[Rfam]
Annotation:
Shown here is an 82-nucleotide RNA from Callorhinchus milii, a member of the family "Small nucleolar RNA SNORD121A".
RNA sequence: AUCCAGGAAACAAUGAUGUUUAAUUCAAGCACAUAUCUGAACACUUUUAUGUGGAUAGUCCCAUUGGCUGAGUUUCCUGGAU
Numbered sequence: 001a002u003c004c005a006g007g008a009a010a011c012a013a014u015g016a017u018g019u020u021u022a023a024u025u026c027a028a029g030c031a032c033a034u035a036u037c038u039g040a041a042c043a044c045u046u047u048u049a050u051g052u053g054g055a056u057a058g059u060c061c062c063a064u065u066g067g068c069u070g071a072g073u074u075u076c077c078u079g080g081a082u
Stems, first nucleotide, its partner, number of pairs: 001082006008075004
The sequence is in the family's curated seed alignment. The family's consensus secondary structure was predicted with WAR. For this family Rfam cites "snoSeeker: an advanced computational package for screening of guide and orphan snoRNA genes in the human genome" (Yang et al., Nucleic Acids Res, 2006). It is annotated as a C/D-box small nucleolar RNA.